[Rfam]
RNA sequence: AAUCUUUUAAAAUAUAGUUUUCGUAUAACCCUAAUAAUAAGGUUUAGGGGUUUCUACCAGGAGCCAAAAAUUCCUGAUUACGAAGAAUGCUUAAUUUGAA
Numbered sequence: 001a002a003u004c005u006u007u008u009a010a011a012a013u014a015u016a017g018u019u020u021u022c023g024u025a026u027a028a029c030c031c032u033a034a035u036a037a038u039a040a041g042g043u044u045u046a047g048g049g050g051u052u053u054c055u056a057c058c059a060g061g062a063g064c065c066a067a068a069a070a071u072u073c074c075u076g077a078u079u080a081c082g083a084a085g086a087a088u089g090c091u092u093a094a095u096u097u098g099a100a
Stems, first nucleotide, its partner, number of pairs: 018086008029049006058076006
Purine riboswitch aptamer: a 100-nucleotide sequence from Romboutsia maritimum. The source organism's lineage runs through Bacteria, Bacillati, Clostridia, Peptostreptococcales and Romboutsia. The literature on the family includes a 2003 paper in Cell by Mandal et al., "Riboswitches Control Fundamental Biochemical Pathways in Bacillus subtilis and Other Bacteria". Rfam 15.1 lists 4,097 matches to the family in 1,411 species.